[Rfam]
This 104-nucleotide sequence from Streptococcus mitis belongs to the Rfam family "Streptococcus sRNA SpF25". It is one of the family's seed sequences. The literature on the family includes a 2012 paper in PLoS Pathog by Mann et al., "Control of virulence by small RNAs in Streptococcus pneumoniae".
RNA sequence: GCAUGGGAUAGCCUUUCUAAAUGGUUUAUUGGGCAAUUUUAUUUUACCAAGACUAUCGCAGCCAUGCAAAAAAAGCAACGGAUUUGCCGUUGCUUUUUUUUGCA
Numbered sequence: 001g002c003a004u005g006g007g008a009u010a011g012c013c014u015u016u017c018u019a020a021a022u023g024g025u026u027u028a029u030u031g032g033g034c035a036a037u038u039u040u041a042u043u044u045u046a047c048c049a050a051g052a053c054u055a056u057c058g059c060a061g062c063c064a065u066g067c068a069a070a071a072a073a074a075g076c077a078a079c080g081g082a083u084u085u086g087c088c089g090u091u092g093c094u095u096u097u098u099u100u101u102g103c104a
Stems, first nucleotide, its partner, number of pairs: 004060002007057005016052003022049004030041004065104008075093007